[Rfam]
RNA sequence: CAGAAAAGAGCCAAACCCGUCGUGAGGCGGGGACGGAAAGCCGCGGGUCUCAGUGAGACAGCCGGGCCGCCUAAG
Numbered sequence: 001c002a003g004a005a006a007a008g009a010g011c012c013a014a015a016c017c018c019g020u021c022g023u024g025a026g027g028c029g030g031g032g033a034c035g036g037a038a039a040g041c042c043g044c045g046g047g048u049c050u051c052a053g054u055g056a057g058a059c060a061g062c063c064g065g066g067c068c069g070c071c072u073a074a075g
Stems, first nucleotide, its partner, number of pairs: 001075001003072001011036002016031006034061001040067003044064003047059003